[Rfam]
RNA sequence: AUAAUUUUUAUCAAUAGAGAACACUCAUAUUGAUAAAAUGAUUUGAACAACUU
Numbered sequence: 001a002u003a004a005u006u007u008u009u010a011u012c013a014a015u016a017g018a019g020a021a022c023a024c025u026c027a028u029a030u031u032g033a034u035a036a037a038a039u040g041a042u043u044u045g046a047a048c049a050a051c052u053u
Base pairs, nucleotide, nucleotide: 011033012032013031014030015029016028
The family of this 53-nucleotide RNA sequence from Artemisia annua is "Plastid-atpF group II-D1 intron". Rfam's curators write: Plastid atpF is a non-coding RNA (ncRNA) recognised in plastids. It has been reported in the intron group II-D1 region of ATP synthase (atpF) genes. Gene Ontology term of the family: Group II intron splicing. On this family, see Richter et al., Plant Commun 2023: "Retrograde signaling in plants: A critical review focusing on the GUN pathway and beyond". NCBI's taxonomy places the organism under Eukaryota, Streptophyta, Gunneridae, Artemisiinae, Artemisia.